[Rfam]
A member of the RNA family "Purine riboswitch aptamer" from Halarsenatibacter silvermanii, 102 nucleotides long. The family's consensus secondary structure is taken from published work.
RNA sequence: UUUAUAAGAGAGUUAGUAUCUCAUAUAGUUGUGAGGAUAUGGCUCACAAGUUUCUACCAGAUAGCCGUAAACUAUCUGCCUAUGAGAGCAAGAGCGUCUAGG
Numbered sequence: 001u002u003u004a005u006a007a008g009a010g011a012g013u014u015a016g017u018a019u020c021u022c023a024u025a026u027a028g029u030u031g032u033g034a035g036g037a038u039a040u041g042g043c044u045c046a047c048a049a050g051u052u053u054c055u056a057c058c059a060g061a062u063a064g065c066c067g068u069a070a071a072c073u074a075u076c077u078g079c080c081u082a083u084g085a086g087a088g089c090a091a092g093a094g095c096g097u098c099u100a101g102g
Base pairs, nucleotide, nucleotide: 019087020086021085022084023083024082025081029049030048031047032046033045034044035043058078059077060076061075062074063073064072